RNA sequence: AUGCACUAGUGAUUUAUGUUCUGCCUUCAGUCCUUGUUGGUGGGAUAUUGUACUGGUGCAGAAAGGAAAUGCUGCUCCUUGAAGCAGCGGCGGCCAGACAACCGUUGAGACAGAUCCACAGAUAAACGACUCAUCUCCUGUUGUUUGUCUACUAAAUCUGUCUCACAUUA
Number, nucleotide and partner (000 for none) at each position: 001a000002u060003g059004c058005a057006c056007u000008a000009g000010u000011g000012a000013u050014u000015u000016a048017u047018g046019u045020u044021c043022u000023g000024c000025c042026u000027u040028c039029a038030g000031u000032c000033c000034u000035u000036g000037u000038u029039g028040g027041u000042g025043g021044g020045a019046u018047a017048u016049u000050g013051u000052a000053c000054u000055g000056g006057u005058g004059c003060a002061g000062a000063a000064a000065g000066g000067a000068a000069a000070u000071g000072c000073u000074g000075c000076u000077c000078c000079u000080u000081g000082a000083a000084g000085c000086a000087g000088c000089g000090g000091c000092g000093g000094c000095c000096a000097g000098a000099c000100a000101a000102c000103c000104g000105u000106u000107g164108a163109g162110a161111c160112a159113g158114a157115u000116c000117c000118a000119c000120a000121g000122a000123u000124a146125a145126a144127c143128g142129a141130c140131u000132c000133a000134u000135c000136u000137c000138c000139u000140g130141u129142u128143g127144u126145u125146u124147g000148u000149c000150u000151a000152c000153u000154a000155a000156a000157u114158c113159u112160g111161u110162c109163u108164c107165a000166c000167a000168u000169u000170a000